The record is a 158-nucleotide RNA from Clostridiales bacterium CHKCI001, which matches "Clostridiales-1 RNA" in Rfam. A search with the family's covariance model found it, with a score of 79 bits. Rfam classes the family as a small RNA.
RNA sequence: UAAAAGUGUAGUCAAUGAUCAGACAGGCAGGGAAUUUAUACCCUGUACUGGCUUGUCAUUCGACGACCUGACCUGUAUGAGCAAGUAAGGCAUUUGUCUAGAUUGCGAAUACGGGCAGCGAUUGCGGGAGCACCAAAGUGCGGAGCAAUCGACUUUCA
Numbered sequence: 001u002a003a004a005a006g007u008g009u010a011g012u013c014a015a016u017g018a019u020c021a022g023a024c025a026g027g028c029a030g031g032g033a034a035u036u037u038a039u040a041c042c043c044u045g046u047a048c049u050g051g052c053u054u055g056u057c058a059u060u061c062g063a064c065g066a067c068c069u070g071a072c073c074u075g076u077a078u079g080a081g082c083a084a085g086u087a088a089g090g091c092a093u094u095u096g097u098c099u100a101g102a103u104u105g106c107g108a109a110u111a112c113g114g115g116c117a118g119c120g121a122u123u124g125c126g127g128g129a130g131c132a133c134c135a136a137a138g139u140g141c142g143g144a145g146c147a148a149u150c151g152a153c154u155u156u157c158a
Stems, first nucleotide, its partner, number of pairs: 001158001003156005008067002011064001014060006021053002024050003030043003034039001072115007081106004088099004119151007130141004